Shown here is a 79-nucleotide sequence from Python bivittatus, a member of the family "Small nucleolar RNA SNORD72". Rfam's curators write: snoRNA HBII-240 belongs to the CD family of snoRNAs. It is the human orthologue of the mouse MBII-240 and is predicted to guide 2'O-ribose methylation of the large 28S rRNA at residue U4590. It scores 70 bits against the family's covariance model. The literature on the family includes a 2001 paper in EMBO J by Huttenhofer et al., "RNomics: an experimental approach that identifies 201 candidates for novel, small, non-messenger RNAs in mouse". The base pairs follow the family's consensus structure.

RNA sequence: AGCUUAUCUGUGAUGUUCCUAUAAAAAAUGUCUGAACAUCUGAUUUCUUAAGUGAUUAAUUUUGUAACUGAGAUAAGCU
Numbered sequence: 001a002g003c004u005u006a007u008c009u010g011u012g013a014u015g016u017u018c019c020u021a022u023a024a025a026a027a028a029u030g031u032c033u034g035a036a037c038a039u040c041u042g043a044u045u046u047c048u049u050a051a052g053u054g055a056u057u058a059a060u061u062u063u064g065u066a067a068c069u070g071a072g073a074u075a076a077g078c079u
Stems, first nucleotide, its partner, number of pairs: 002078007
Dot-bracket structure: .(((((((...............................................................))))))).